The family of this 45-nucleotide RNA sequence from Senna tora is "Plastid-rpl16 group II-D1 intron".
Pairs were carried over by alignment from the consensus structure, which was predicted with LocARNA.
Rfam describes the family as follows. Plastid-rpl16 is a non-coding RNA (ncRNA) recognised in plastids. It was recognised in and intronic region of a ribosome rpl16 gene.
Taxonomically the source falls in Senna (Eukaryota, Streptophytina, Fabaceae, Cassieae).
Its family is annotated with Group II intron splicing in the Gene Ontology.
On this family, see Richter et al., Plant Commun 2023: "Retrograde signaling in plants: A critical review focusing on the GUN pathway and beyond".

RNA sequence: AAGAGUCCGAGUCACAAAAACUGAGAAGGUUGACUCAAGAAAAAA
Numbered sequence: 001a002a003g004a005g006u007c008c009g010a011g012u013c014a015c016a017a018a019a020a021c022u023g024a025g026a027a028g029g030u031u032g033a034c035u036c037a038a039g040a041a042a043a044a045a
Base pairs, nucleotide, nucleotide: 006039009036010035011034012033013032014031015029